[Rfam]
Nucleotides: 151
Stems, first nucleotide, its partner, number of pairs: 030147002033145002037142006045062003064114004116135006
Number, partner (000 for none) and nucleotide at each position: 001000u002000u003000g004000a005000c006000u007000u008000u009000g010000c011000u012000g013000a014000u015000u016000c017000u018000u019000u020000g021000a022000c023000c024000u025000a026000a027000u028000u029000u030147a031146g032000u033145g034144a035000g036000u037142a038141a039140g040139g041138g042137u043000a044000a045062g046061g047060g048000a049000g050000g051000a052000u053000u054000g055000c056000u057000c058000c059000u060047c061046c062045c063000u064114c065113u066112g067111g068000a069000a070000c071000u072000c073000u074000g075000u076000u077000u078000a079000g080000a081000a082000a083000g084000c085000u086000g087000g088000u089000g090000g091000g092000c093000u094000u095000a096000u097000c098000a099000u100000c101000a102000a103000c104000a105000g106000a107000a108000u109000a110000a111067c112066c113065a114064g115000g116135a117134u118133g119132a120131u121130g122000a123000c124000u125000a126000u127000c128000c129000u130121c131120a132119u133118c134117a135116u136000a137042a138041c139040c140039c141038u142037u143000c144034u145033c146031c147030u148000u149000u150000g151000a

About this RNA:
The record is a 151-nucleotide RNA sequence from Enterobacteriaceae bacterium strain FGI 57, which matches "Short Intergenic Abundant RNA" in Rfam. Rfam 15.1 lists 111 matches to the family in 41 species. This family contains multiple ncRNA from E. coli that were identified in a large scale screen of E. coli, were they were called candidates 43,55 and 61. It is annotated as an antitoxin RNA.